[Rfam]
RNA: Small nucleolar RNA SNORA84
Organism: Echeneis naucrates
RNA sequence: GCCUGGUGGUUCCUAGAGUCAGCUCCAAAGUGCUGAACUUUUGGGUUUUUAUUAACAGGCGCAAAUUGAUUCUGCAGUUUUAUGCAUGGAAGCUGUCAACAUAGCAGCCUUCCAUAGCCCGGUUGCAGAUACAUUU
Numbered sequence: 001g002c003c004u005g006g007u008g009g010u011u012c013c014u015a016g017a018g019u020c021a022g023c024u025c026c027a028a029a030g031u032g033c034u035g036a037a038c039u040u041u042u043g044g045g046u047u048u049u050u051a052u053u054a055a056c057a058g059g060c061g062c063a064a065a066u067u068g069a070u071u072c073u074g075c076a077g078u079u080u081u082a083u084g085c086a087u088g089g090a091a092g093c094u095g096u097c098a099a100c101a102u103a104g105c106a107g108c109c110u111u112c113c114a115u116a117g118c119c120c121g122g123u124u125g126c127a128g129a130u131a132c133a134u135u136u
Stems, first nucleotide, its partner, number of pairs: 001060004007051002011045003015041003019036005072128001074126006084118002086115004091110002093107004